[Rfam]
RNA sequence: ACAGUCUGAAAAUCACCUGCGGUCUCCCGUGGCCCCCGGUGAGAUAACCGUGCCGACAGCAUAGGGAACAUCAAAGCUUAUUGCCCACGGUGACAGUGUGUGGGGAGUGAAACCCGUGUUCCCAUAACC
Number, nucleotide and partner (000 for none) at each position: 001a000002c000003a000004g000005u000006c050007u000008g048009a000010a045011a000012a000013u042014c041015a040016c039017c000018u000019g000020c000021g034022g033023u032024c031025u000026c000027c000028c000029g000030u000031g024032g023033c022034c021035c000036c000037c000038g000039g016040u015041g014042a013043g000044a000045u010046a000047a000048c008049c000050g006051u000052g000053c000054c000055g000056a000057c000058a000059g000060c000061a000062u000063a000064g000065g122066g000067a120068a119069c118070a117071u116072c000073a000074a000075a000076g000077c000078u110079u109080a108081u107082u106083g000084c000085c000086c100087a099088c098089g000090g000091u000092g000093a000094c000095a000096g000097u000098g088099u087100g086101u000102g000103g000104g000105g000106a082107g081108u080109g079110a078111a000112a000113c000114c000115c000116g071117u070118g069119u068120u067121c000122c065123c000124a000125u000126a000127a000128c000129c000
The family of this 129-nucleotide sequence is "Small nucleolar RNA ACA64". For this family Rfam cites "A computational screen for mammalian pseudouridylation guide H/ACA RNAs" (Schattner et al., RNA, 2006). The base pairs follow the family's consensus structure, which was predicted with WAR. Rfam's curators put it in the seed alignment.